[Rfam]
RNA sequence: AGUUUGUUUACAAACUGCAUACAAUAAUGCGACGUUUGCCGAAAGGCAAACUUGGCAGAUAAACAGUGAGGCUGAAUUCCUUCCGAACUGUUUAUCAUAU
Numbered sequence: 001a002g003u004u005u006g007u008u009u010a011c012a013a014a015c016u017g018c019a020u021a022c023a024a025u026a027a028u029g030c031g032a033c034g035u036u037u038g039c040c041g042a043a044a045g046g047c048a049a050a051c052u053u054g055g056c057a058g059a060u061a062a063a064c065a066g067u068g069a070g071g072c073u074g075a076a077u078u079c080c081u082u083c084c085g086a087a088c089u090g091u092u093u094a095u096c097a098u099a100u
Stems, first nucleotide, its partner, number of pairs: 001016006030054003034051007058096010070084002
RNA: TD-2 RNA
Organism: Treponema denticola